A member of the RNA family "TPP riboswitch aptamer (THI element)" from Glaciimonas immobilis, 142 nucleotides long. About the family: Vitamin B(1) in its active form thiamin pyrophosphate (TPP) is an essential coenzyme that is synthesised by coupling of pyrimidine and thiazole moieties in bacteria. The previously detected thiamin-regulatory element, thi box was extended, resulting in a new, highly conserved RNA secondary structure, the THI element, which is widely distributed in eubacteria and also occurs in some archaea. NCBI's taxonomy places the organism under Bacteria, Pseudomonadati, Betaproteobacteria, Burkholderiales, Glaciimonas.

RNA sequence: AGCAAAUGCUAGGGGUCCUGAUUACCCGGUGUGGAUUAAGUAACGUACUAAACGUUGAUUAAAAACGCCAGUAAUCGGGUGAGAAACACCCUCUGAACCUGAUCUGGGUAAUGCCAGCGAAGGGAAGCCGUUCGAGUUUGCU
Numbered sequence: 001a002g003c004a005a006a007u008g009c010u011a012g013g014g015g016u017c018c019u020g021a022u023u024a025c026c027c028g029g030u031g032u033g034g035a036u037u038a039a040g041u042a043a044c045g046u047a048c049u050a051a052a053c054g055u056u057g058a059u060u061a062a063a064a065a066c067g068c069c070a071g072u073a074a075u076c077g078g079g080u081g082a083g084a085a086a087c088a089c090c091c092u093c094u095g096a097a098c099c100u101g102a103u104c105u106g107g108g109u110a111a112u113g114c115c116a117g118c119g120a121a122g123g124g125a126a127g128c129c130g131u132u133c134g135a136g137u138u139u140g141c142u
Stems, first nucleotide, its partner, number of pairs: 008128003011092004016086001017079009098123003104117004